[Rfam]
RNA sequence: UAUGCAAAGCAUAGGAUGAGAAAGCACUGAAACUGACUCUGUAUGAUGCGUGUUCAGUCCAAUGCUGAGCUUUGUGUC
Numbered sequence: 001u002a003u004g005c006a007a008a009g010c011a012u013a014g015g016a017u018g019a020g021a022a023a024g025c026a027c028u029g030a031a032a033c034u035g036a037c038u039c040u041g042u043a044u045g046a047u048g049c050g051u052g053u054u055c056a057g058u059c060c061a062a063u064g065c066u067g068a069g070c071u072u073u074g075u076g077u078c
Base pairs, nucleotide, nucleotide: 002077003076004075005074006073007072008071009070010069
Source information
The record is a 78-nucleotide RNA sequence from Aramus guarauna, which matches "Small nucleolar RNA SNORD69" in Rfam. The base pairs follow the family's consensus structure. The family has 11 seed sequences and 524 matches in Rfam 15.1. NCBI's taxonomy places the organism under Eukaryota, Bilateria, Dipnotetrapodomorpha, Sauropsida, Aramus. Gene Ontology terms of the family: RNA processing and nucleolus. The family's RNA type in Rfam is C/D-box small nucleolar RNA. About the family: snoRNA HBII-210 belongs to the C/D family of snoRNAs. It is the human orthologue of the mouse MBII-210 and is predicted to guide the 2'O-ribose methylation of large 28S rRNA on residue G4464.